[Rfam]
RNA sequence: GUCUGCUAUAAUGUUUUUAACUUCUUCAAUAGAGAAGUUAUCUCCUUUGUGUUGUUUAUAAUAACAAAACAAAUUUUGCUCGAAGUACUAUGACUGUACCUAGUCCUUACUGUCAUAUGUACAAUAAUAUUCAUUUCCCAUAAAAGCCAAGUGUAUUACCAUGUGCACUUGGUUUUU
Numbered sequence: 001g002u003c004u005g006c007u008a009u010a011a012u013g014u015u016u017u018u019a020a021c022u023u024c025u026u027c028a029a030u031a032g033a034g035a036a037g038u039u040a041u042c043u044c045c046u047u048u049g050u051g052u053u054g055u056u057u058a059u060a061a062u063a064a065c066a067a068a069a070c071a072a073a074u075u076u077u078g079c080u081c082g083a084a085g086u087a088c089u090a091u092g093a094c095u096g097u098a099c100c101u102a103g104u105c106c107u108u109a110c111u112g113u114c115a116u117a118u119g120u121a122c123a124a125u126a127a128u129a130u131u132c133a134u135u136u137c138c139c140a141u142a143a144a145a146g147c148c149a150a151g152u153g154u155a156u157u158a159c160c161a162u163g164u165g166c167a168c169u170u171g172g173u174u175u176u177u
Stems, first nucleotide, its partner, number of pairs: 018040009046073005052067005085122004089117006096110003147172010
Description
RNA Staph. aureus D: a 177-nucleotide sequence from Staphylococcus aureus. The sequence is in the family's curated seed alignment. On this family, see Geissmann et al., Nucleic Acids Res 2009: "A search for small noncoding RNAs in Staphylococcus aureus reveals a conserved sequence motif for regulation". Pairs were carried over by alignment from the consensus structure, which is taken from published work. Lineage of the source: Bacteria > Bacilli > Caryophanales > Staphylococcaceae > Staphylococcus aureus. Rfam classes the family as a small RNA.